A member of the RNA family "Plant signal recognition particle RNA" from Capsicum annuum, 306 nucleotides long. By type it is a non-coding RNA gene. Clan: SRP clan. Lineage of the source: Eukaryota > Viridiplantae > Mesangiospermae > Solanales > Capsicum. The family has 63 seed sequences and 4,988 matches in Rfam 15.1. The literature on the family includes a 2003 paper in Nucleic Acids Res by Rosenblad et al., "SRPDB: Signal Recognition Particle Database".
RNA sequence: GCCGAGCUCAGUAAUGUGGGCUUGUAAUCCAAAUGGGGGCAUCAAUGUGGUGGGAUGUUGGUCUGUCCCAGAUGGUUGGCCUUGUCAGGCUAGUAGUUUCUGGCCUGCCCUCUCCAAGCACAGAGUUGGUUCAGGGGGUCUAAUCAAAAGAAUAGGCUUCUUGAUCCCUAAAGCGGGGUGGACUGCGUGAGGCUGGUUUCACAGAGCAACGAACAGCUCCCGCUCUGUGCAGUGGAAGGAUAACUGGUCGGUGCCUUUCAAGUCCAGUAACACCUGAUGGGCUGCUCUGAUUAAACCAUCACUUUU
Numbered sequence: 001g002c003c004g005a006g007c008u009c010a011g012u013a014a015u016g017u018g019g020g021c022u023u024g025u026a027a028u029c030c031a032a033a034u035g036g037g038g039g040c041a042u043c044a045a046u047g048u049g050g051u052g053g054g055a056u057g058u059u060g061g062u063c064u065g066u067c068c069c070a071g072a073u074g075g076u077u078g079g080c081c082u083u084g085u086c087a088g089g090c091u092a093g094u095a096g097u098u099u100c101u102g103g104c105c106u107g108c109c110c111u112c113u114c115c116a117a118g119c120a121c122a123g124a125g126u127u128g129g130u131u132c133a134g135g136g137g138g139u140c141u142a143a144u145c146a147a148a149a150g151a152a153u154a155g156g157c158u159u160c161u162u163g164a165u166c167c168c169u170a171a172a173g174c175g176g177g178g179u180g181g182a183c184u185g186c187g188u189g190a191g192g193c194u195g196g197u198u199u200c201a202c203a204g205a206g207c208a209a210c211g212a213a214c215a216g217c218u219c220c221c222g223c224u225c226u227g228u229g230c231a232g233u234g235g236a237a238g239g240a241u242a243a244c245u246g247g248u249c250g251g252u253g254c255c256u257u258u259c260a261a262g263u264c265c266a267g268u269a270a271c272a273c274c275u276g277a278u279g280g281g282c283u284g285c286u287c288u289g290a291u292u293a294a295a296c297c298a299u300c301a302c303u304u305u306u
Base pairs, nucleotide, nucleotide: 001040002039003038004023005022006021007020008019009018010017028037029036030035044305045304047302048301049300050299051298052297053296056293057292058290059289060288061286063284065282066281068280069279070278074274075273076272078265079264081262082261083260084259087256088255089254091253092252100251101250102249103248104247105246107244109239110238113236114235115234116233118230119229120228121227122226123225124224125223126222128167129166131164132163133162134161135160136159137158138157139156140155141154142153144151145150168173175220176219177218178217179216184213186211187210188209193204194203195202